[Rfam]
RNA sequence: AUUCUUUAAAGUAUACUGAGUAGAUAAUAAAUAAAAAAAAAAAAAUCUGUUCUUAUCAGUUUAAUAUCUGAUACGUCCCCUAUCUGGGGACCAUAUAUUAAAUGGAUUUUUGGAACAGGGAGAUGGAAGAAGAGCUUGCUCUGUCCACUCCACGCAUCGACCUGGUAUUGCAGUACCUUCAGGACAGGUACUUCUCUU
Numbered sequence: 001a002u003u004c005u006u007u008a009a010a011g012u013a014u015a016c017u018g019a020g021u022a023g024a025u026a027a028u029a030a031a032u033a034a035a036a037a038a039a040a041a042a043a044a045a046u047c048u049g050u051u052c053u054u055a056u057c058a059g060u061u062u063a064a065u066a067u068c069u070g071a072u073a074c075g076u077c078c079c080c081u082a083u084c085u086g087g088g089g090a091c092c093a094u095a096u097a098u099u100a101a102a103u104g105g106a107u108u109u110u111u112g113g114a115a116c117a118g119g120g121a122g123a124u125g126g127a128a129g130a131a132g133a134g135c136u137u138g139c140u141c142u143g144u145c146c147a148c149u150c151c152a153c154g155c156a157u158c159g160a161c162c163u164g165g166u167a168u169u170g171c172a173g174u175a176c177c178u179u180c181a182g183g184a185c186a187g188g189u190a191c192u193u194c195u196c197u198u
Stems, first nucleotide, its partner, number of pairs: 007037001054073006075091006119151004125145002131142004154191001156189003161183005